[Rfam]
RNA sequence: AGCUUUGCGCAGUGGCGUAUCAUAGCCAAUGAGGUUUUAACCGAGGCGUUGAUUAUUGCUAGUUGAAAAAACUUUUCCCAAUACCCCGCCAUGAUGACGUGAAAUACAGUCAGCAUUGCAAUUUUGACAGUCUCUCAGGAGG
Numbered sequence: 001a002g003c004u005u006u007g008c009g010c011a012g013u014g015g016c017g018u019a020u021c022a023u024a025g026c027c028a029a030u031g032a033g034g035u036u037u038u039a040a041c042c043g044a045g046g047c048g049u050u051g052a053u054u055a056u057u058g059c060u061a062g063u064u065g066a067a068a069a070a071a072c073u074u075u076u077c078c079c080a081a082u083a084c085c086c087c088g089c090c091a092u093g094a095u096g097a098c099g100u101g102a103a104a105u106a107c108a109g110u111c112a113g114c115a116u117u118g119c120a121a122u123u124u125u126g127a128c129a130g131u132c133u134c135u136c137a138g139g140a141g142g
Stems, first nucleotide, its partner, number of pairs: 019053004023048001025047003033042003088119002091116003095112004099107002131142004
Rfam assigns this 142-nucleotide sequence from Hymenochirus boettgeri to the family "U4 spliceosomal RNA".
The family's RNA type in Rfam is spliceosomal small nuclear RNA.
A reference for the family is Zwieb (1997), "The uRNA database", Nucleic Acids Res.
The base pairs follow the family's consensus structure, which is taken from published work.
A search with the family's covariance model found it, with a score of 88 bits.
Taxonomically the source falls in Hymenochirus (Eukaryota, Craniata, Teleostomi, Euteleostomi).
About the family: U4 small nuclear RNA (U4 snRNA) is a component of the major U2-dependent spliceosome.